Shown here is a 149-nucleotide RNA from Cajanus cajan, a member of the family "MIR408 microRNA precursor family". Taxonomically the source falls in Cajanus (Eukaryota, Embryophyta, Gunneridae, fabids).
RNA sequence: AGCAAGAGACAGGACAAAGGCUGGGAACAGGCAGAGCACGAAUGGAUCUAUCAACAGAAAAAUAAUGAAGUGAGAAUGAGAGGAGGGAGAGAUCUGUUGUGGCUACACUCAUGCACUGCCUCUUCCCUGGCUCUGUCUCUUUCCUACUC
Numbered sequence: 001a002g003c004a005a006g007a008g009a010c011a012g013g014a015c016a017a018a019g020g021c022u023g024g025g026a027a028c029a030g031g032c033a034g035a036g037c038a039c040g041a042a043u044g045g046a047u048c049u050a051u052c053a054a055c056a057g058a059a060a061a062a063u064a065a066u067g068a069a070g071u072g073a074g075a076a077u078g079a080g081a082g083g084a085g086g087g088a089g090a091g092a093u094c095u096g097u098u099g100u101g102g103c104u105a106c107a108c109u110c111a112u113g114c115a116c117u118g119c120c121u122c123u124u125c126c127c128u129g130g131c132u133c134u135g136u137c138u139c140u141u142u143c144c145u146a147c148u149c
Stems, first nucleotide, its partner, number of pairs: 018132002021129001023127005029121006036114003040110002046104001
The base pairs follow the family's consensus structure, which was predicted with WAR. On this family, see Sunkar and Zhu, Plant Cell 2004: "Novel and stress-regulated microRNAs and other small RNAs from Arabidopsis". Rfam links the family to the GO terms RISC complex and miRNA-mediated post-transcriptional gene silencing.